[Rfam]
Nucleotides: 171
Base pairs, nucleotide, nucleotide: 001016002015003014004013005012006011029170031168032167035164036163041157042156043155044154045153046151047150048149049148050147062146063145064144065143066142067141073138074137075136080132081131082130083129084128086114087113088112089111092107093106094105095104
Number, partner (000 for none) and nucleotide at each position: 001016u002015c003014u004013a005012g006011g007000g008000u009000g010000a011006c012005c013004u014003a015002g016001a017000a018000u019000c020000u021000g022000a023000a024000g025000g026000a027000a028000g029170c030000c031168g032167g033000a034000c035164g036163c037000a038000a039000a040000a041157u042156c043155u044154c045153g046151g047150g048149a049148c050147a051000a052000c053000g054000a055000a056000c057000a058000g059000a060000a061000a062146c063145u064144g065143g066142a067141u068000a069000u070000a071000a072000g073138g074137c075136u076000g077000g078000c079000u080132g081131g082130g083129g084128a085000c086114g087113g088112a089111c090000g091000a092107g093106u094105u095104u096000c097000c098000u099000a100000u101000a102000c103000a104095a105094a106093a107092c108000g109000a110000a111089g112088u113087c114086c115000a116000a117000c118000a119000c120000u121000g122000c123000c124000c125000g126000a127000a128084u129083c130082u131081c132080c133000u134000a135000c136075a137074g138073u139000a140000a141067a142066u143065c144064c145063a146062g147050u148049g149048u150047c151046u152000a153045c154044g155043a156042g157041a158000g159000g160000a161000a162000a163036g164035c165000g166000g167032u168031u169000a170029g171000a
Group II catalytic intron D1-D4-3: a 171-nucleotide RNA from Halalkalibacter krulwichiae. A search with the family's covariance model found it, with a score of 140 bits.